[Rfam]
Nucleotides: 269
Base pairs, nucleotide, nucleotide: 001242002241003240004239005238007236008217009216010215011214012213013212015176016175018173019172020171021170022169023168024167025166026165031052034050035049036048037047038046061123064120065119066118075088099114100113101112179198180197181196219233220232221231222230248269249268250267251266252265253264254263255262256261
Number, partner (000 for none) and nucleotide at each position: 001242c002241a003240u004239a005238g006000a007236a008217c009216g010215g011214c012213u013212u014000g015176c016175a017000a018173g019172g020171g021170c022169g023168g024167u025166c026165u027000c028000g029000g030000c031052u032000a033000c034050c035049u036048c037047u038046c039000a040000a041000a042000u043000g044000a045000a046038g047037g048036g049035a050034g051000g052031g053000a054000u055000g056000c057000c058000c059000a060000u061123g062000g063000a064120g065119g066118u067000u068000a069000a070000a071000g072000a073000c074000g075088c076000u077000u078000u079000g080000a081000c082000g083000u084000u085000g086000a087000u088075g089000a090000u091000c092000a093000g094000u095000u096000u097000u098000g099114g100113c101112g102000c103000g104000c105000u106000c107000c108000u109000u110000a111000u112101c113100g114099c115000g116000c117000u118066g119065c120064u121000g122000a123061c124000g125000c126000u127000g128000g129000u130000u131000a132000u133000c134000g135000c136000c137000a138000u139000c140000g141000u142000c143000a144000c145000a146000g147000c148000g149000a150000u151000u152000a153000a154000c155000c156000a157000a158000a159000a160000g161000a162000a163000a164000u165026a166025g167024a168023c169022c170021g171020c172019c173018c174000c175016u176015g177000c178000c179198a180197a181196g182000g183000u184000c185000u186000g187000c188000g189000g190000u191000c192000u193000a194000u195000u196181c197180u198179u199000u200000a201000c202000c203000g204000u205000a206000u207000u208000u209000c210000c211000g212013a213012a214011g215010c216009c217008g218000a219233c220232c221231g222230c223000c224000u225000u226000u227000g228000a229000a230222g231221c232220g233219g234000a235000c236007u237000a238005c239004u240003g241002u242001g243000c244000c245000g246000g247000g248269g249268a250267g251266u252265c253264g254263u255262g256261u257000u258000a259000c260000c261256g262255c263254a264253c265252g266251g267250c268249u269248c
Rfam assigns this 269-nucleotide RNA from Brevibacillus sp. SYP-B805 to the family "BsrG". It scores 68 bits against the family's covariance model. By type it is a small RNA. bsrE, bsrG and bsrH pair through intermolecular interactions with antisense sRNAs. They form type I toxin/antitoxin system that includes an mRNA encoding for a short, toxic peptide (bsrE, bsrG and bsrH) and an antitoxin that is comprised of an antisense RNA. bsrG encodes a 39-amino-acid toxin, and the 180 nucleotide antisense sRNA called SR4 acts as the antitoxin (they overlap by 123 nucleotides). SR4 interaction with the 3'UTR of bsrG RNA promotes bsrG degradation and inhibits its translation. Its family is annotated with toxin activity and autolysis in the Gene Ontology.